The family of this 98-nucleotide RNA from Oxynema aestuarii is "TPP riboswitch aptamer (THI element)".

RNA sequence: UCUUCAAGCUAGGGGUGCCUAGACCGUUGAGGCUGAGAUCAGACCCUUAGUACCUGAGUCUGGGUAAUACCAGCGGAGGGAAGCUGUUAAUUGAGGUU
Numbered sequence: 001u002c003u004u005c006a007a008g009c010u011a012g013g014g015g016u017g018c019c020u021a022g023a024c025c026g027u028u029g030a031g032g033c034u035g036a037g038a039u040c041a042g043a044c045c046c047u048u049a050g051u052a053c054c055u056g057a058g059u060c061u062g063g064g065u066a067a068u069a070c071c072a073g074c075g076g077a078g079g080g081a082a083g084c085u086g087u088u089a090a091u092u093g094a095g096g097u098u
Base pairs, nucleotide, nucleotide: 007085008084009083010082011047012046013045014044016041017033018032019031020030053079054078055077060073061072062071063070